[Rfam]
RNA sequence: AAUGGUAUGUUAACAGAUGCCAUGCUUAAGAGUCAUCUUAUGAGUAAUUAACAUCGCUAUUUGCUGGGAACUCCUAAGAGCUUUAAGAACUUAAUUAUAGUAACAAUCUUAAAGAUUGGACAAUCAGCAGGAAACCAAAUUGGGUGUGCUUUGCACUGCAAGAGUAGGAUCCUCAGAGACUACACGCGUUGCCCCUUACUCUUUUUUAAUAAACUAACUGAUAAUUUGUAAGGGUGAAGAUAUAGUCCAGCCAUUAUUGAAAGGUAAUG
Numbered sequence: 001a002a003u004g005g006u007a008u009g010u011u012a013a014c015a016g017a018u019g020c021c022a023u024g025c026u027u028a029a030g031a032g033u034c035a036u037c038u039u040a041u042g043a044g045u046a047a048u049u050a051a052c053a054u055c056g057c058u059a060u061u062u063g064c065u066g067g068g069a070a071c072u073c074c075u076a077a078g079a080g081c082u083u084u085a086a087g088a089a090c091u092u093a094a095u096u097a098u099a100g101u102a103a104c105a106a107u108c109u110u111a112a113a114g115a116u117u118g119g120a121c122a123a124u125c126a127g128c129a130g131g132a133a134a135c136c137a138a139a140u141u142g143g144g145u146g147u148g149c150u151u152u153g154c155a156c157u158g159c160a161a162g163a164g165u166a167g168g169a170u171c172c173u174c175a176g177a178g179a180c181u182a183c184a185c186g187c188g189u190u191g192c193c194c195c196u197u198a199c200u201c202u203u204u205u206u207u208a209a210u211a212a213a214c215u216a217a218c219u220g221a222u223a224a225u226u227u228g229u230a231a232g233g234g235u236g237a238a239g240a241u242a243u244a245g246u247c248c249a250g251c252c253a254u255u256a257u258u259g260a261a262a263g264g265u266a267a268u269g
Stems, first nucleotide, its partner, number of pairs: 005025005011019002029039002052191002055188003062129006072120003076116001130172002135167001137165001144159003176248001178247005193234007254267005
RNA: Group I catalytic intron